[Rfam]
RNA: 6C RNA
Organism: Gordonia iterans
Nucleotides: 075
Base pairs, nucleotide, nucleotide: 002034003033004032005031006030007029008028009027010026011025012024013023035071036070037069038068039067040066041065042064043063044062045061046060047059
Number, partner (000 for none) and nucleotide at each position: 001000g002034u003033g004032c005031u006030u007029u008028c009027a010026a011025c012024c013023c014000g015000a016000c017000c018000c019000c020000c021000c022000g023013g024012g025011g026010u027009u028008g029007a030006a031005a032004g033003u034002a035071g036070a037069u038068g039067a040066c041065c042064c043063c044062g045061g046060c047059c048000u049000c050000c051000u052000c053000c054000c055000c056000c057000c058000u059047g060046g061045c062044c063043g064042g065041g066040g067039u068038c069037a070036u071035c072000c073000g074000u075000c